[Rfam]
RNA sequence: CGUGAUCUACCCUGUAGAUCCGGGCUUUUGUCGUCCGUAUUGGUCAGAAGCUCGUCUCUACAGGUAUCUUACGG
Numbered sequence: 001c002g003u004g005a006u007c008u009a010c011c012c013u014g015u016a017g018a019u020c021c022g023g024g025c026u027u028u029u030g031u032c033g034u035c036c037g038u039a040u041u042g043g044u045c046a047g048a049a050g051c052u053c054g055u056c057u058c059u060a061c062a063g064g065u066a067u068c069u070u071a072c073g074g
Stems, first nucleotide, its partner, number of pairs: 002072004010064002016059003021054010
A member of the RNA family "mir-10 microRNA precursor family" from Nesidiocoris tenuis, 74 nucleotides long.
Gene Ontology terms of the family: RISC complex and miRNA-mediated post-transcriptional gene silencing.
NCBI's taxonomy places the organism under Eukaryota, Metazoa, Bilateria, Insecta, Nesidiocoris.
Rfam 15.1 lists 3,853 matches to the family in 853 species.